[Rfam]
Overview
The family of this 52-nucleotide RNA sequence from Defluviicoccus sp. is "serC leader". The base pairs follow the family's consensus structure. Rfam describes the family as follows. This family is a putative regulatory RNA structure that is found upstream of the serC-serA operon in some alpha-proteobacteria. For this family Rfam cites "Evidence for a second class of S-adenosylmethionine riboswitches and other regulatory RNA motifs in alpha-proteobacteria" (Corbino et al., Genome Biol, 2005). By type it is a cis-regulatory leader.
RNA sequence: CGCCGGGCCACGGCCCCCGACGGGCCGCGACCCAUCUGCAAGGAUGGGAGCA
Numbered sequence: 001c002g003c004c005g006g007g008c009c010a011c012g013g014c015c016c017c018c019g020a021c022g023g024g025c026c027g028c029g030a031c032c033c034a035u036c037u038g039c040a041a042g043g044a045u046g047g048g049a050g051c052a
Stems, first nucleotide, its partner, number of pairs: 011027006032047006